[Rfam]
RNA: Lysine riboswitch aptamer
RNA sequence: UUGAUAAAUAGAGGCGCGAAUAAAUGGGUAAUUUUUAAAUGUUAAGGAGAAGAACCUCCAACGUUAAAAAUGAAGGGUUUACUUGCCGAAAGAUAUUAUUUGUUCUUACUUAAUAUCUUGGGGAUUAAGUUCAAAAGGCUUUAUCCUUGCCAUGAUCAAAGACAUGGAGAGCUAUUUAUGCA
Numbered sequence: 001u002u003g004a005u006a007a008a009u010a011g012a013g014g015c016g017c018g019a020a021u022a023a024a025u026g027g028g029u030a031a032u033u034u035u036u037a038a039a040u041g042u043u044a045a046g047g048a049g050a051a052g053a054a055c056c057u058c059c060a061a062c063g064u065u066a067a068a069a070a071u072g073a074a075g076g077g078u079u080u081a082c083u084u085g086c087c088g089a090a091a092g093a094u095a096u097u098a099u100u101u102g103u104u105c106u107u108a109c110u111u112a113a114u115a116u117c118u119u120g121g122g123g124a125u126u127a128a129g130u131u132c133a134a135a136a137g138g139c140u141u142u143a144u145c146c147u148u149g150c151c152a153u154g155a156u157c158a159a160a161g162a163c164a165u166g167g168a169g170a171g172c173u174a175u176u177u178a179u180g181c182a
Base pairs, nucleotide, nucleotide: 006177007176008175009174010173011172016086017085018084019083021081022080023079024078031071032070033069034068035067036066037065038064090119091118092117093116094115095114096113097112098111101108120148121147122146123145124144125143127141128140129139130138150167151166152165153164154163156161